[Rfam]
RNA sequence: UGAAGAGAUUAGGGGUGUCCUUUGUGAGACAAAUGAUAGUUGUCUCUCCAAAGGGCUGAGAAAUACCCAUUGAACCUGUUCGGGUAAUGCCGUCGUAGGGAUGAUGUAUGCUUCUGGAU
Numbered sequence: 001u002g003a004a005g006a007g008a009u010u011a012g013g014g015g016u017g018u019c020c021u022u023u024g025u026g027a028g029a030c031a032a033a034u035g036a037u038a039g040u041u042g043u044c045u046c047u048c049c050a051a052a053g054g055g056c057u058g059a060g061a062a063a064u065a066c067c068c069a070u071u072g073a074a075c076c077u078g079u080u081c082g083g084g085u086a087a088u089g090c091c092g093u094c095g096u097a098g099g100g101a102u103g104a105u106g107u108a109u110g111c112u113u114c115u116g117g118a119u
Stems, first nucleotide, its partner, number of pairs: 006107001008105003012068003016063001017056008075099004081092003
A member of the RNA family "TPP riboswitch aptamer (THI element)" from Legionella clemsonensis, 119 nucleotides long. For this family Rfam cites "Crystal structures of the thi-box riboswitch bound to thiamine pyrophosphate analogs reveal adaptive RNA-small molecule recognition" (Edwards and Ferre-D'Amare, Structure, 2006). Lineage of the source: Bacteria > Gammaproteobacteria > Legionellales > Legionellaceae > Legionella.